[Rfam]
RNA sequence: UUCUCUCUGAGAUAUGUUUGAUAUUCUUGGUUGUGUAUUCAACUCCAACCAGGAAUCAAACAUAUUAUUAGAGUGAA
Numbered sequence: 001u002u003c004u005c006u007c008u009g010a011g012a013u014a015u016g017u018u019u020g021a022u023a024u025u026c027u028u029g030g031u032u033g034u035g036u037a038u039u040c041a042a043c044u045c046c047a048a049c050c051a052g053g054a055a056u057c058a059a060a061c062a063u064a065u066u067a068u069u070a071g072a073g074u075g076a077a
Base pairs, nucleotide, nucleotide: 005073006072007071008070009069011066012065013064014063015062016061017060018059019058020057021056022055024053025052029050030049031048032047033046
Dot-bracket structure: ....(((((.((((((((((((.((...(((((............))))).)).))))))))))))..)))))....
mir-190 microRNA precursor family: a 77-nucleotide sequence from Ladona fulva.
The family has 76 seed sequences and 1,667 matches in Rfam 15.1.
The family is grouped with related families in Rfam's "mir-50 clan".
The match comes from Rfam's covariance-model search (78 bits).
Pairs were carried over by alignment from the consensus structure, which was predicted with RNAalifold.